[Rfam]
RNA sequence: UAUAUUUGCACGCUAAUAGCAGAAUGCUAUUGUAUACAUAAAAAUCAUUUAAAUAAUAUUGGAAUG
Numbered sequence: 001u002a003u004a005u006u007u008g009c010a011c012g013c014u015a016a017u018a019g020c021a022g023a024a025u026g027c028u029a030u031u032g033u034a035u036a037c038a039u040a041a042a043a044a045u046c047a048u049u050u051a052a053a054u055a056a057u058a059u060u061g062g063a064a065u066g
Base pairs, nucleotide, nucleotide: 014032015031016030017029018028019027
Overview: A member of the RNA family "S15-Flavobacteria ribosomal protein leader" from Aquimarina sp. RZ0, 66 nucleotides long. Clan: Ribosomal Protein S15 Leader clan. NCBI's taxonomy places the organism under Bacteria, Pseudomonadati, Flavobacteriia, Flavobacteriaceae, Aquimarina. It is annotated as a cis-regulatory leader.